[Rfam]
RNA sequence: GUAGCAGUCACCGCAAGGUGCCUGCCCCUGAGGCAGUCCGACUUUCGCGGUGCGCCCAGCGUGCCGCGCCCGGCCUCGCCGGAUUUUACAAACCCGCCGACCAAGCAAGAGUCGGC
Dot-bracket structure: .........(((....)))..(((((.....))))).........(((((((((.....))))))))).((((.....)))).............((((((.........))))))
This 116-nucleotide RNA sequence from Ectopseudomonas mendocina belongs to the Rfam family "Pseudomon-groES RNA". The base pairs follow the family's consensus structure, which is taken from published work.